[Rfam]
Rfam assigns this 71-nucleotide sequence from Stegodyphus mimosarum to the family "mir-153 microRNA precursor family".

RNA sequence: UUGCCCAUCAUUUUUGUGAUUGUUGCAAUUUUGGUGAUGAAGAAUUGCAUAGUCACAAAAGUGAUGGGGAU
Numbered sequence: 001u002u003g004c005c006c007a008u009c010a011u012u013u014u015u016g017u018g019a020u021u022g023u024u025g026c027a028a029u030u031u032u033g034g035u036g037a038u039g040a041a042g043a044a045u046u047g048c049a050u051a052g053u054c055a056c057a058a059a060a061g062u063g064a065u066g067g068g069g070a071u
Base pairs, nucleotide, nucleotide: 002070004068005067006066008064009063010062011061012060013059014058015057016056017055018054019053020052024049025048026047027046028045029044030043

It scores 59 bits against the family's covariance model. The base pairs follow the family's consensus structure, which was predicted with RNAalifold. The source organism's lineage runs through Eukaryota, Eumetazoa, Bilateria, Arachnida and Stegodyphus. Rfam links the family to the GO terms miRNA-mediated post-transcriptional gene silencing and RISC complex.